[Rfam]
RNA: Fluoride riboswitch aptamer (crcB RNA motif)
RNA sequence: UUCCCCGCCGGAGAUGGCAUUCUCCGUUAACCGCCCUCGUGGCUGAUGAUGCCUGCCUAGCC
Numbered sequence: 001u002u003c004c005c006c007g008c009c010g011g012a013g014a015u016g017g018c019a020u021u022c023u024c025c026g027u028u029a030a031c032c033g034c035c036c037u038c039g040u041g042g043c044u045g046a047u048g049a050u051g052c053c054u055g056c057c058u059a060g061c062c
Base pairs, nucleotide, nucleotide: 010025011024012023013022016053017052018051019050020049021048033043034042035041